[Rfam]
RNA sequence: CUGCGGCGCCGGAGUAACUCCGGCGCCGCAGUAAACCAGAACCGCCAGCUCACAAAGCCACGGUUCUUACUUGAAAAGAAAUUGACGACCAGCAGGGGCAUCCGGGCUGGUGCCCGGACUAUCUGCGGGAUCCGUAGUGGCUUACCCGUCGCUGCUUCAGGACUGCAAGUCACAACUACGGCCUCCACGCCGGUGGUGUCCCCUUACCGAGGGUGACCA
Numbered sequence: 001c002u003g004c005g006g007c008g009c010c011g012g013a014g015u016a017a018c019u020c021c022g023g024c025g026c027c028g029c030a031g032u033a034a035a036c037c038a039g040a041a042c043c044g045c046c047a048g049c050u051c052a053c054a055a056a057g058c059c060a061c062g063g064u065u066c067u068u069a070c071u072u073g074a075a076a077a078g079a080a081a082u083u084g085a086c087g088a089c090c091a092g093c094a095g096g097g098g099c100a101u102c103c104g105g106g107c108u109g110g111u112g113c114c115c116g117g118a119c120u121a122u123c124u125g126c127g128g129g130a131u132c133c134g135u136a137g138u139g140g141c142u143u144a145c146c147c148g149u150c151g152c153u154g155c156u157u158c159a160g161g162a163c164u165g166c167a168a169g170u171c172a173c174a175a176c177u178a179c180g181g182c183c184u185c186c187a188c189g190c191c192g193g194u195g196g197u198g199u200c201c202c203c204u205u206a207c208c209g210a211g212g213g214u215g216a217c218c219a
Base pairs, nucleotide, nucleotide: 001031002030003029004028005027006026007025008024009023010022011021012020013019039066040065041064042063043062044061048058049057050056094204095203096202097201098200099198100197101118102117103116104115105114106113119196120195121194122193123192125190126189127188129185130184132181133180136177137176138175140171141169142168143167145165148163149162150161

Rfam assigns this 219-nucleotide sequence from Pseudomonas sp. 8AS to the family "sucA-II RNA". The base pairs follow the family's consensus structure, which is taken from published work.